The record is a 318-nucleotide sequence from Chinchilla lanigera, which matches "7SK RNA" in Rfam. Pairs were carried over by alignment from the consensus structure, which is taken from published work. It is annotated as a non-coding RNA gene. The family is grouped with related families in Rfam's "7SK clan". Lineage of the source: Eukaryota > Chordata > Sarcopterygii > Euarchontoglires > Chinchilla. On this family, see Wassarman and Steitz, Mol Cell Biol 1991: "Structural analyses of the 7SK ribonucleoprotein (RNP), the most abundant human small RNP of unknown function".

[Rfam]
RNA sequence: GGAUGUGAAGGUGAUCUGGCUGCGACAUCCAUCACCCCAUUGAUCGCCAGGGUUGAUUCAGCUGAUCUGAUUGGCUGGGUGGUUGUCCCCUUCCUCCUUCAAUGCUCCCUGUGUGUGCACGCUCAGUUGAAGAGGACAACCACUCCCAAUACAAGAGGACCAUUCCUCGGUCAGGGGUAUACAAGUAGCUGCACUCCCCUGCUAGAAAAUCCAAACAAACUCUCAAGGUCCAUUUGUAGGAGAAUGUAGGGUAGUCAAGCUUCCAAGACUCCAGACACAUCCAAAUGAGGUGCUGCAUGUGGCAGUCUGCCUUUCUUU
Numbered sequence: 001g002g003a004u005g006u007g008a009a010g011g012u013g014a015u016c017u018g019g020c021u022g023c024g025a026c027a028u029c030c031a032u033c034a035c036c037c038c039a040u041u042g043a044u045c046g047c048c049a050g051g052g053u054u055g056a057u058u059c060a061g062c063u064g065a066u067c068u069g070a071u072u073g074g075c076u077g078g079g080u081g082g083u084u085g086u087c088c089c090c091u092u093c094c095u096c097c098u099u100c101a102a103u104g105c106u107c108c109c110u111g112u113g114u115g116u117g118c119a120c121g122c123u124c125a126g127u128u129g130a131a132g133a134g135g136a137c138a139a140c141c142a143c144u145c146c147c148a149a150u151a152c153a154a155g156a157g158g159a160c161c162a163u164u165c166c167u168c169g170g171u172c173a174g175g176g177g178u179a180u181a182c183a184a185g186u187a188g189c190u191g192c193a194c195u196c197c198c199c200u201g202c203u204a205g206a207a208a209a210u211c212c213a214a215a216c217a218a219a220c221u222c223u224c225a226a227g228g229u230c231c232a233u234u235u236g237u238a239g240g241a242g243a244a245u246g247u248a249g250g251g252u253a254g255u256c257a258a259g260c261u262u263c264c265a266a267g268a269c270u271c272c273a274g275a276c277a278c279a280u281c282c283a284a285a286u287g288a289g290g291u292g293c294u295g296c297a298u299g300u301g302g303c304a305g306u307c308u309g310c311c312u313u314u315c316u317u318u
Base pairs, nucleotide, nucleotide: 001108002107003106006101007100008099009098010097011096013093014092018090019089024087025086026085027084029082030081031080032079033078035074036073038069039068042067043066044065045064046062047061116158118155121152122126127149128148129147134145135144188260189259190258194254195253197251198250199249200248201247202246210241211240212239215237216236217235218234219233283318284317285316287313288312289311290310291309292306293305294304295303296302
Notes: The family has 45 seed sequences and 49,373 matches in Rfam 15.1.